RNA sequence: AGGUUAAUGCUAAUCGUGAUAGGGGUUUUUCAUAACAGACGCCUAACAUGUUAGCAUUAGCUU
Numbered sequence: 001a002g003g004u005u006a007a008u009g010c011u012a013a014u015c016g017u018g019a020u021a022g023g024g025g026u027u028u029u030u031c032a033u034a035a036c037a038g039a040c041g042c043c044u045a046a047c048a049u050g051u052u053a054g055c056a057u058u059a060g061c062u063u
Stems, first nucleotide, its partner, number of pairs: 004060011020045004025040003
Shown here is a 63-nucleotide RNA sequence from Salarias fasciatus, a member of the family "mir-155 microRNA precursor family".
NCBI's taxonomy places the organism under Eukaryota, Opisthokonta, Neopterygii, Teleostei, Salarias.
Pairs were carried over by alignment from the consensus structure, which was predicted with RNAalifold.
The match comes from Rfam's covariance-model search (68 bits).
Gene Ontology terms of the family: miRNA-mediated post-transcriptional gene silencing and RISC complex.